[Rfam]
RNA: mir-29 microRNA precursor family
RNA sequence: GGAAGCUGAAUUCAAAUGGUGCCAUAGAGUAUUCCAUGUCAUCUAGCACCAUUUGAAAUCAGUGUUCU
Numbered sequence: 001g002g003a004a005g006c007u008g009a010a011u012u013c014a015a016a017u018g019g020u021g022c023c024a025u026a027g028a029g030u031a032u033u034c035c036a037u038g039u040c041a042u043c044u045a046g047c048a049c050c051a052u053u054u055g056a057a058a059u060c061a062g063u064g065u066u067c068u
Stems, first nucleotide, its partner, number of pairs: 001068004005063005011057004016052006025045004